[Rfam]
RNA: Glycine riboswitch aptamer
RNA sequence: CCUCUGGAAAGAGGGGACGCACGUCCCCCGCCGAAGGUGAAAGCGUCCCGGGCCGUGGGGCGUGAAUCUCUCAGGCGCCGAGACAGAGG
Numbered sequence: 001c002c003u004c005u006g007g008a009a010a011g012a013g014g015g016g017a018c019g020c021a022c023g024u025c026c027c028c029c030g031c032c033g034a035a036g037g038u039g040a041a042a043g044c045g046u047c048c049c050g051g052g053c054c055g056u057g058g059g060g061c062g063u064g065a066a067u068c069u070c071u072c073a074g075g076c077g078c079c080g081a082g083a084c085a086g087a088g089g
Base pairs, nucleotide, nucleotide: 001089002088003087004086005085006084013028014027015026016025030076031075032074033072034071037070039068043063044062045061046060047059048058049057